[Rfam]
RNA sequence: AAGGCAUGAGUAUUACAUCAGGUACUGGUGAGCUUACAUAACCACCCAGUGCUUGUGUCAUACUUCAGCCUU
Numbered sequence: 001a002a003g004g005c006a007u008g009a010g011u012a013u014u015a016c017a018u019c020a021g022g023u024a025c026u027g028g029u030g031a032g033c034u035u036a037c038a039u040a041a042c043c044a045c046c047c048a049g050u051g052c053u054u055g056u057g058u059c060a061u062a063c064u065u066c067a068g069c070c071u072u
Stems, first nucleotide, its partner, number of pairs: 001072005009064004015058004021053008
This 72-nucleotide RNA from Cryptotermes secundus belongs to the Rfam family "mir-12 microRNA precursor family". For this family Rfam cites "Functional and evolutionary insights from the genomes of three parasitoid Nasonia species" (Werren et al., Science, 2010). The family's consensus secondary structure was predicted with RNAalifold. It scores 68 bits against the family's covariance model.